[Rfam]
RNA sequence: UCUAUGGUCUUAUUUAACAUUGGCCAAAACUGUAGUGAACCUAUGGUUAAAAAUCAUCAAAUUGCGGGAAACCCCUAAAGAAAUCUUAACCAAGUAAGUAUGGUAACAUAACUUAUGGCACAGGUAAUGACUCGUGGUACGGUAAAAUCAAGAUUUAUUAUUCAAUGGGCAAUCCGCAGCCAAGUACCAAGUAUAAAAUAUCUGGUAUGCAGUUCAUCGACUAGACGGUGGUUGGUAUUAUUAGUUUUAAUAAUGCUUAAGAUAUAGUCAGCCCCCUCCUGAAAAGGUGCA
Dot-bracket structure: ....(.(.((.((.....)).)).).)....(........)..........(((((.(....((((((....(((...........................................................................................)))...))))))((...((((.................))))...))...[.[[[[[...).))))).(((((((((....)))))))))........]]]]]].....(.(((....))).)..
Numbered sequence: 001u002c003u004a005u006g007g008u009c010u011u012a013u014u015u016a017a018c019a020u021u022g023g024c025c026a027a028a029a030c031u032g033u034a035g036u037g038a039a040c041c042u043a044u045g046g047u048u049a050a051a052a053a054u055c056a057u058c059a060a061a062u063u064g065c066g067g068g069a070a071a072c073c074c075c076u077a078a079a080g081a082a083a084u085c086u087u088a089a090c091c092a093a094g095u096a097a098g099u100a101u102g103g104u105a106a107c108a109u110a111a112c113u114u115a116u117g118g119c120a121c122a123g124g125u126a127a128u129g130a131c132u133c134g135u136g137g138u139a140c141g142g143u144a145a146a147a148u149c150a151a152g153a154u155u156u157a158u159u160a161u162u163c164a165a166u167g168g169g170c171a172a173u174c175c176g177c178a179g180c181c182a183a184g185u186a187c188c189a190a191g192u193a194u195a196a197a198a199u200a201u202c203u204g205g206u207a208u209g210c211a212g213u214u215c216a217u218c219g220a221c222u223a224g225a226c227g228g229u230g231g232u233u234g235g236u237a238u239u240a241u242u243a244g245u246u247u248u249a250a251u252a253a254u255g256c257u258u259a260a261g262a263u264a265u266a267g268u269c270a271g272c273c274c275c276c277u278c279c280u281g282a283a284a285a286g287g288u289g290c291a
Stems, first nucleotide, its partner, number of pairs: 005027001007025001009023002012020002032041001052233005058227001063178006073169003179213002184208004217270001219269005235256009276289001278287003